The record is a 357-nucleotide sequence from Clostridium botulinum, which matches "Bacterial RNase P class A" in Rfam. Rfam classes the family as a ribozyme. The organism belongs to Clostridium botulinum A, within Bacteria. Its family is annotated with tRNA processing, ribonuclease P activity and dimeric ribonuclease P complex in the Gene Ontology.

RNA sequence: CGAGUAAGCCAGACAAUCGCUGCCGUACAUUGUACGGGAGAGGAAAGUCCGAGCUCCAUAGGGCAGGGUGCUGGGUAAUACCCAGUGGAGGCGACUCUAAGGAAAGUGCAACAGAGAUAUACCGCCAGGUUUAUCUGGUAAGGGUGGAAAGGCGAGGUAAGAGCUCACCAGCGUAUAGGUGACUAUACGGCUAUGUAAACCCCAUCUGGAGCAAGAUCGAAUAGGAGAGCAGGAAAUUUUGGUUUCCAGGGGUGGCCCGUCCCGCUCUCGGGUAGUAUCGCUGGAGCCUAUUGGUAACAAUAGGCCUAGAUAGAUGAUUGUCUAACACAGAACUCGGCUUAUAGGCUUGGUCGUGCC
Numbered sequence: 001c002g003a004g005u006a007a008g009c010c011a012g013a014c015a016a017u018c019g020c021u022g023c024c025g026u027a028c029a030u031u032g033u034a035c036g037g038g039a040g041a042g043g044a045a046a047g048u049c050c051g052a053g054c055u056c057c058a059u060a061g062g063g064c065a066g067g068g069u070g071c072u073g074g075g076u077a078a079u080a081c082c083c084a085g086u087g088g089a090g091g092c093g094a095c096u097c098u099a100a101g102g103a104a105a106g107u108g109c110a111a112c113a114g115a116g117a118u119a120u121a122c123c124g125c126c127a128g129g130u131u132u133a134u135c136u137g138g139u140a141a142g143g144g145u146g147g148a149a150a151g152g153c154g155a156g157g158u159a160a161g162a163g164c165u166c167a168c169c170a171g172c173g174u175a176u177a178g179g180u181g182a183c184u185a186u187a188c189g190g191c192u193a194u195g196u197a198a199a200c201c202c203c204a205u206c207u208g209g210a211g212c213a214a215g216a217u218c219g220a221a222u223a224g225g226a227g228a229g230c231a232g233g234a235a236a237u238u239u240u241g242g243u244u245u246c247c248a249g250g251g252g253u254g255g256c257c258c259g260u261c262c263c264g265c266u267c268u269c270g271g272g273u274a275g276u277a278u279c280g281c282u283g284g285a286g287c288c289u290a291u292u293g294g295u296a297a298c299a300a301u302a303g304g305c306c307u308a309g310a311u312a313g314a315u316g317a318u319u320g321u322c323u324a325a326c327a328c329a330g331a332a333c334u335c336g337g338c339u340u341a342u343a344g345g346c347u348u349g350g351u352c353g354u355g356c357c
Stems, first nucleotide, its partner, number of pairs: 001353003005349006011342001012322007020040002023037006045340003049337005054211004061258004066207005071085005086100001087098004101202002106200002108196003122143002124139006151169002154166003171191001172189007215279003218275001225269006249263005286305008